[Rfam]
This 145-nucleotide sequence from Brassica carinata belongs to the Rfam family "mir-393 microRNA precursor family".
Taxonomically the source falls in Brassica (Eukaryota, Embryophyta, Magnoliopsida, Pentapetalae).
A reference for the family is Kruszka et al. (2012), "Role of microRNAs and other sRNAs of plants in their changing environments", J Plant Physiol.

RNA sequence: AGAGAAAGGAUCCAAAGGGAUCGCAUUGAUCCUAAUUAAGCUGAAUUUAUUCCCAAAUAAUUGUUAUAUUUUUCUCAAUCUAAAGAAAAAAUCCCAAAAAUCCGCUUCGUUUUCAGGAUCAUGCGAUCUAUUUGGAUUCAUCCUU
Numbered sequence: 001a002g003a004g005a006a007a008g009g010a011u012c013c014a015a016a017g018g019g020a021u022c023g024c025a026u027u028g029a030u031c032c033u034a035a036u037u038a039a040g041c042u043g044a045a046u047u048u049a050u051u052c053c054c055a056a057a058u059a060a061u062u063g064u065u066a067u068a069u070u071u072u073u074c075u076c077a078a079u080c081u082a083a084a085g086a087a088a089a090a091a092u093c094c095c096a097a098a099a100a101u102c103c104g105c106u107u108c109g110u111u112u113u114c115a116g117g118a119u120c121a122u123g124c125g126a127u128c129u130a131u132u133u134g135g136a137u138u139c140a141u142c143c144u145u
Base pairs, nucleotide, nucleotide: 002145003144004143006141008139009138010137011136012135013134014133015132016131018129019128020127021126023124024123025122026121028120029119030118031117032116038113039112040111